[Rfam]
Background: A member of the RNA family "tRNA" from Xylaria arbuscula, 95 nucleotides long. Rfam classes the family as a transfer RNA. The family has 954 seed sequences and 5,335,975 matches in Rfam 15.1. The base pairs follow the family's consensus structure, which is taken from published work. Its family is annotated with triplet codon-amino acid adaptor activity in the Gene Ontology. The source organism's lineage runs through Eukaryota, Opisthokonta, Fungi, Pezizomycotina and Xylaria.
RNA sequence: GCCCUGGUAGCUCAAUUGGUUAGAGCGUCGGACUUUUACUCCUGAUCUUGGGAGAAGCUAUCCGAAGGCUGCGGGUUCGACCCCCGCCUGGGGCG
Numbered sequence: 001g002c003c004c005u006g007g008u009a010g011c012u013c014a015a016u017u018g019g020u021u022a023g024a025g026c027g028u029c030g031g032a033c034u035u036u037u038a039c040u041c042c043u044g045a046u047c048u049u050g051g052g053a054g055a056a057g058c059u060a061u062c063c064g065a066a067g068g069c070u071g072c073g074g075g076u077u078c079g080a081c082c083c084c085c086g087c088c089u090g091g092g093g094c095g
Base pairs, nucleotide, nucleotide: 001094002093003092004091005090006089007088010026011025012024013023028065029064030063031062032061071087072086073085074084075083